[Rfam]
RNA sequence: GAGCGUUAAUAGCAAACUUGUCGAAAGGCAAGGACGCAAAGCCAAAGGGUCUAAGGUGAUUAGUAACACUAUGAUAGCCUGGUUGCCGCA
Numbered sequence: 001g002a003g004c005g006u007u008a009a010u011a012g013c014a015a016a017c018u019u020g021u022c023g024a025a026a027g028g029c030a031a032g033g034a035c036g037c038a039a040a041g042c043c044a045a046a047g048g049g050u051c052u053a054a055g056g057u058g059a060u061u062a063g064u065a066a067c068a069c070u071a072u073g074a075u076a077g078c079c080u081g082g083u084u085g086c087c088g089c090a
Stems, first nucleotide, its partner, number of pairs: 012037002017032006040084004046080003049075003056069003